[Rfam]
RNA sequence: AAUGUUGAGGGCACAAUACGCCGCCUGCAAAAUCAGAGACUAACCGACGUUUUUUUAACUCGUCGGUUAUUUUUUUGC
Numbered sequence: 001a002a003u004g005u006u007g008a009g010g011g012c013a014c015a016a017u018a019c020g021c022c023g024c025c026u027g028c029a030a031a032a033u034c035a036g037a038g039a040c041u042a043a044c045c046g047a048c049g050u051u052u053u054u055u056u057a058a059c060u061c062g063u064c065g066g067u068u069a070u071u072u073u074u075u076u077g078c
Stems, first nucleotide, its partner, number of pairs: 011021002041069009
Rfam assigns this 78-nucleotide RNA from Trabulsiella odontotermitis to the family "Enterobacterial sRNA STnc240". The match comes from Rfam's covariance-model search (77 bits). Pairs were carried over by alignment from the consensus structure, which was predicted with WAR. NCBI's taxonomy places the organism under Bacteria, Pseudomonadati, Pseudomonadota, Gammaproteobacteria, Trabulsiella.